Source information:
Rfam assigns this 52-nucleotide RNA sequence from Arachis duranensis to the family "Plastid-psbl-rps4 3UTR RNA". Plastid psbl-rps4-psbC is a non-coding RNA (ncRNA) present in plastids. Pairs were carried over by alignment from the consensus structure, which was predicted with LocARNA. A reference for the family is Richter et al. (2023), "Retrograde signaling in plants: A critical review focusing on the GUN pathway and beyond", Plant Commun.
RNA sequence: CAGAAAGAGAGGGAUUCAAACCCUCGGUACAAAAAUUCGUACAACGGAUUAG
Numbered sequence: 001c002a003g004a005a006a007g008a009g010a011g012g013g014a015u016u017c018a019a020a021c022c023c024u025c026g027g028u029a030c031a032a033a034a035a036u037u038c039g040u041a042c043a044a045c046g047g048a049u050u051a052g
Base pairs, nucleotide, nucleotide: 009025010024011023012022013021027042028041029040030039032037